[Rfam]
RNA sequence: AGGUGCAAGUUUGAGGUCACAGCAGAAGCACUUGCAGUGCAGCCUAUCAGAUUCCAAUGAAUUUGUGAAUUCUGCU
Numbered sequence: 001a002g003g004u005g006c007a008a009g010u011u012u013g014a015g016g017u018c019a020c021a022g023c024a025g026a027a028g029c030a031c032u033u034g035c036a037g038u039g040c041a042g043c044c045u046a047u048c049a050g051a052u053u054c055c056a057a058u059g060a061a062u063u064u065g066u067g068a069a070u071u072c073u074g075c076u
Stems, first nucleotide, its partner, number of pairs: 015044003021076007028040003048065007
The record is a 76-nucleotide sequence from Alligator mississippiensis, which matches "Mammalian CPEB3 ribozyme" in Rfam.
On this family, see Salehi-Ashtiani et al., Science 2006: "A genomewide search for ribozymes reveals an HDV-like sequence in the human CPEB3 gene".
NCBI's taxonomy places the organism under Eukaryota, Sarcopterygii, Dipnotetrapodomorpha, Alligatoridae, Alligator.
The mammalian CPEB3 ribozyme is a self cleaving RNA located in the second intron of the CPEB3 gene which belongs to a family of genes regulating messenger RNA polyadenylation.